[Rfam]
RNA sequence: ACCUCUGCUCCAGGUGAGAGAAACACGUAUCAGAGUUUCAUGGCUAGCUUAAACUAGGCACCACCAUUUCCUAUGGAGAUCGAAAUUAAGGAAGAAUGAGUGGUUUUGUUUGAUCCUAUGAUACAUGUCGCUCUCACCUGGAGCAGAGCUGC
Numbered sequence: 001a002c003c004u005c006u007g008c009u010c011c012a013g014g015u016g017a018g019a020g021a022a023a024c025a026c027g028u029a030u031c032a033g034a035g036u037u038u039c040a041u042g043g044c045u046a047g048c049u050u051a052a053a054c055u056a057g058g059c060a061c062c063a064c065c066a067u068u069u070c071c072u073a074u075g076g077a078g079a080u081c082g083a084a085a086u087u088a089a090g091g092a093a094g095a096a097u098g099a100g101u102g103g104u105u106u107u108g109u110u111u112g113a114u115c116c117u118a119u120g121a122u123a124c125a126u127g128u129c130g131c132u133c134u135c136a137c138c139u140g141g142a143g144c145a146g147a148g149c150u151g152c
Stems, first nucleotide, its partner, number of pairs: 003148005009142012023128002027124006034111002
The record is a 152-nucleotide RNA from Cicer arietinum, which matches "MIR4416 microRNA precursor family" in Rfam. Taxonomically the source falls in Cicer (Eukaryota, Euphyllophyta, Mesangiospermae, eudicotyledons). The base pairs follow the family's consensus structure, which was predicted with RNAalifold.